Rfam assigns this 117-nucleotide RNA sequence from Megasphaera sp. AM44-1BH to the family "FMN riboswitch aptamer (RFN element)".
RNA sequence: AAUAAUCUUCAGGGCAGGGCGCAAUCCCCGACCGGCGGUGACAGUCCGCGAACACAACGUGUACGAUUUGGUGAAAUUCCAAAACCGACAGUAAAGUCUGGAUGAGAGAAGAUAAGA
Dot-bracket structure: ..(.((((((......(((.......))).[[((((((.....[[)))).................(((((.......)))))]])).(((....]]))).......)))))).)..
The family has 146 seed sequences and 6,230 matches in Rfam 15.1. Pairs were carried over by alignment from the consensus structure, which is taken from published work.